The family of this 70-nucleotide sequence from Cellulosimicrobium phage DS1 is "Pistol ribozyme".
RNA sequence: ACUCGACUAGGCGAGUAUAAAUAGCCCUUAAGCCUAGUGCGUCCCGCUAGUGAGAGUAGCGGGGGUGAGG
Numbered sequence: 001a002c003u004c005g006a007c008u009a010g011g012c013g014a015g016u017a018u019a020a021a022u023a024g025c026c027c028u029u030a031a032g033c034c035u036a037g038u039g040c041g042u043c044c045c046g047c048u049a050g051u052g053a054g055a056g057u058a059g060c061g062g063g064g065g066u067g068a069g070g
Stems, first nucleotide, its partner, number of pairs: 001016004006038006025069001027067001032040001042064008
The literature on the family includes a 2015 paper in Nat Chem Biol by Weinberg et al., "New classes of self-cleaving ribozymes revealed by comparative genomics analysis".